[Rfam]
RNA sequence: UGACGGAAGGACACCACAAGGAGUGGAGUGUGCGGGUUAAUUUGACUCAACGCGGGAAAACUUACCCGGGCAGGCGAUUGUUGUGAGAAGGAAUACCUGAUGAUAUCGCGCGUGGUGCAUGGCCGUUCUUAACACGUGGAGUGAUCUGUCUGGUCAAAUCUGAUAACGCGUGAGAGGUGAGUGGUUUUUAACCAGACGAUGUGUGUAAGCACAAGGAAGAGACACCCAAUAACAGGUCUGUGAUGCCCGUAGAUGUUCGGGGCUCCACGCGCACUACAAUGAGUGGUGGUGCUAUAAGUAGUAGCCAGUCGUAGUUGGGAUUGACAUAUGUAAUUAUGUCAUGAACGUGGAAUUCCUAGUAGUUGGUAGUCACUAACGACUAACGAAUGAGUCCCUGUUCUUUGUACACACCGCCCGUCGUUAUCUAAGAUGGAGGUGCGGGUGAAGAUGUGAGUGUGUAGAGUUGGUGCGAUGCAUGGAAGUUAAUGACGAGUGCGAGUAGUUAGCUAUGAGUAUGAGUUGUUGAUGGAAGUGGGCGUAACUAAUGGCAUGAGCAUAAGAACCCGUGCAGCUAGAUUGGAUGUAAGUCGUAACAAGG
Dot-bracket structure: (((((.(((((((..((..((((((.((((((((((....((((........))))........(((((((....(((..(.......(((....)))...)..)))...((.((((..((((((((....((.((((((....)))...(((......)))...))).)).....(((..((((.....))))..(..(((((....)))))..)......))).....))).)))...).))))))).....)))))))...)).)))))))).)...((.(((..................))).))......(....(((((((......)))))))....).....))))).....((((((.(.......).))))))......))...)))))))))).))....(..((.(..(((((((..(((..((((((((....(((........................................................................................................)))....))))))))..)))..)))))))...).))...)....